Rfam assigns this 168-nucleotide RNA from Hordeum vulgare to the family "MIR2118 microRNA precursor family". Rfam 15.1 lists 2,377 matches to the family in 45 species. The match comes from Rfam's covariance-model search (110 bits). The literature on the family includes a 2009 paper in Nucleic Acids Res by Xue et al., "Characterization and expression profiles of miRNAs in rice seeds". Gene Ontology terms of the family: RISC complex and miRNA-mediated post-transcriptional gene silencing.
RNA sequence: GACAGGAAGGGGAAGGAAAGAGGGCCUAAGGGCAGUGGGCAUGGGAACAUGAUGGAAGGCUAAAGCUCUCUCAGUUCCUCGUGCAACGUUAAAAGAGGCUUUGGUUGAGUUUUCCUGAUGCCUCCUUUGCCUAUUGUUCUUUGGAGCUCCUUGCUCGUCCUUUUGUGU
Number, nucleotide and partner (000 for none) at each position: 001g000002a000003c000004a000005g000006g000007a000008a000009g159010g158011g000012g156013a155014a000015g000016g152017a151018a000019a000020g149021a148022g147023g000024g000025c144026c143027u000028a141029a140030g139031g138032g137033c136034a135035g000036u133037g132038g131039g130040c129041a128042u000043g126044g125045g124046a123047a000048c120049a119050u118051g000052a116053u000054g115055g114056a113057a112058g111059g110060c109061u000062a000063a000064a000065g000066c000067u000068c000069u000070c000071u000072c000073a000074g000075u000076u000077c000078c000079u000080c000081g000082u000083g000084c000085a000086a000087c000088g000089u000090u000091a000092a000093a000094a000095g000096a000097g000098g000099c000100u000101u000102u000103g000104g000105u000106u000107g000108a000109g060110u059111u058112u057113u056114c055115c054116u052117g000118a050119u049120g048121c000122c000123u046124c045125c044126u043127u000128u041129g040130c039131c038132u037133a036134u000135u034136g033137u032138u031139c030140u029141u028142u000143g026144g025145a000146g000147c022148u021149c020150c000151u017152u016153g000154c000155u013156c012157g000158u010159c009160c000161u000162u000163u000164u000165g000166u000167g000168u000